[Rfam]
RNA sequence: CUCGAGACUUAGAGUCACAUCUGGAUUACUUCCCGUUGCCGUGGUGUGCUAAAGUCCUCGAAGAGUAACUGCUCUCUCUAUUCACUGGCUGUUCGAUCUCGUGGUGCAGUCAGUCACCGGGUUAGUAACAUCG
Numbered sequence: 001c002u003c004g005a006g007a008c009u010u011a012g013a014g015u016c017a018c019a020u021c022u023g024g025a026u027u028a029c030u031u032c033c034c035g036u037u038g039c040c041g042u043g044g045u046g047u048g049c050u051a052a053a054g055u056c057c058u059c060g061a062a063g064a065g066u067a068a069c070u071g072c073u074c075u076c077u078c079u080a081u082u083c084a085c086u087g088g089c090u091g092u093u094c095g096a097u098c099u100c101g102u103g104g105u106g107c108a109g110u111c112a113g114u115c116a117c118c119g120g121g122u123u124a125g126u127a128a129c130a131u132c133g
Base pairs, nucleotide, nucleotide: 002061003060004059005058006057007055008054009053013050014049016048017047018046019045020044021043024040026038072125073124076121077120078119084114085113086112087111088110090108091107092106094104

Rfam assigns this 133-nucleotide RNA from Ornithorhynchus anatinus to the family "Small nucleolar RNA SNORA3/SNORA45 family". The family's RNA type in Rfam is H/ACA-box small nucleolar RNA. Its family is annotated with nucleolus and RNA processing in the Gene Ontology.